Rfam assigns this 185-nucleotide RNA from Sporosarcina sp. Te-1 to the family "Lysine riboswitch aptamer".
RNA sequence: AGGUGAGGUAGAGGCGCGAUAUUUAUUAGCGCAUAGCGGAGUCCGGGAAGACGUAGAAGCUAUGAAGAAGGAAAUAUCGCCGAAGUAUGUAAUGAGUUCUCGCCAUUAUGUACUGGGCCUGUAAUGAAUAAUUGCAGGACUGUCUUAAUAAAUUUGCCGAUUUAUUAAGUUGUGCUAUCUCCACU
Number, nucleotide and partner (000 for none) at each position: 001a000002g000003g000004u000005g000006a180007g179008g178009u177010a176011g175012a000013g000014g000015c000016g080017c079018g078019a077020u076021a075022u074023u073024u072025a000026u000027u000028a000029g000030c000031g000032c064033a063034u062035a061036g060037c059038g000039g000040a000041g000042u000043c000044c000045g000046g000047g000048a000049a000050g000051a000052c000053g000054u000055a000056g000057a000058a000059g037060c036061u035062a034063u033064g032065a000066a000067g000068a000069a000070g000071g000072a024073a023074a022075u021076a020077u019078c018079g017080c016081c000082g000083a000084a114085g113086u112087a111088u110089g109090u108091a107092a106093u105094g104095a000096g000097u000098u000099c000100u000101c000102g000103c000104c094105a093106u092107u091108a090109u089110g088111u087112a086113c085114u084115g141116g140117g000118c138119c137120u136121g135122u134123a133124a132125u131126g000127a000128a000129u000130a000131a125132u124133u123134g122135c121136a120137g119138g118139a000140c116141u115142g000143u000144c169145u168146u167147a166148a165149u164150a163151a162152a161153u000154u000155u000156g000157c000158c000159g000160a000161u152162u151163u150164a149165u148166u147167a146168a145169g144170u000171u000172g000173u000174g000175c011176u010177a009178u008179c007180u006181c000182c000183a000184c000185u000

Rfam links the family to the GO term lysine biosynthetic process. The source organism's lineage runs through Bacteria, Bacillota, Bacilli, Caryophanaceae and Sporosarcina.